[Rfam]
RNA sequence: AACGGCGAGGGAUGAUGAUUCAAUUAGAUGUGCGAAUGGUUUCAUCAUGAGCUCAAAAACUUUAUUUGGCAUUUUAUAAUCUGACUUCGCCGUC
Numbered sequence: 001a002a003c004g005g006c007g008a009g010g011g012a013u014g015a016u017g018a019u020u021c022a023a024u025u026a027g028a029u030g031u032g033c034g035a036a037u038g039g040u041u042u043c044a045u046c047a048u049g050a051g052c053u054c055a056a057a058a059a060c061u062u063u064a065u066u067u068g069g070c071a072u073u074u075u076a077u078a079a080u081c082u083g084a085c086u087u088c089g090c091c092g093u094c
Base pairs, nucleotide, nucleotide: 002093003092004091005090006089007088008087009086010085

This 94-nucleotide RNA sequence belongs to the Rfam family "Small nucleolar RNA Z266".
Pairs were carried over by alignment from the consensus structure, which was predicted with PFOLD.
Rfam 15.1 lists 719 matches to the family in 213 species.
By type it is a C/D-box small nucleolar RNA.